[Rfam]
The record is a 118-nucleotide RNA sequence from Nicotiana tabacum, which matches "Small nucleolar RNA snoR104" in Rfam. It scores 68 bits against the family's covariance model. Gene Ontology terms of the family: RNA processing and nucleolus. Rfam 15.1 lists 612 matches to the family in 228 species.

RNA sequence: GGGAUCACAGUUAAGUUUGAGAUGUAUCCCGAUUCAAUCUUCCUAAAAAGAGUUUCUGGGAUUUCCUACUUGUGGUUCCUGAGAUAGUGCUGCAAGUCUCAAAUAACCAGAUACAUAA
Dot-bracket structure: (((.(.(((.((.......)).)))).)))........................(((..........((((((((..(........)..))))))))...........))).......
It is annotated as an H/ACA-box small nucleolar RNA. The family's consensus secondary structure was predicted with WAR.